[Rfam]
Nucleotides: 081
Base pairs, nucleotide, nucleotide: 001081002080003079005077006076007075008074011028012027013026014025015024019066020065021064030050031045032044033043034042055073056072057071058070059069
Number, partner (000 for none) and nucleotide at each position: 001081g002080a003079c004000a005077u006076u007075u008074g009000a010000g011028g012027g013026c014025a015024g016000a017000a018000a019066g020065g021064u022000u023000c024015c025014u026013g027012c028011c029000a030050c031045a032044c033043c034042u035000u036000g037000c038000a039000a040000a041000a042034a043033g044032g045031u046000a047000u048000c049000u050030g051000a052000g053000a054000u055073g056072c057071u058070g059069g060000g061000u062000a063000c064021a065020c066019c067000g068000a069059c070058c071057a072056g073055c074008c075007a076006a077005g078000g079003g080002u081001c
Record summary
The family of this 81-nucleotide sequence from Streptococcus pseudopneumoniae is "skipping-rope RNA". The family's consensus secondary structure is taken from published work. The organism belongs to Streptococcus pseudopneumoniae, within Bacteria. The sequence is in the family's curated seed alignment.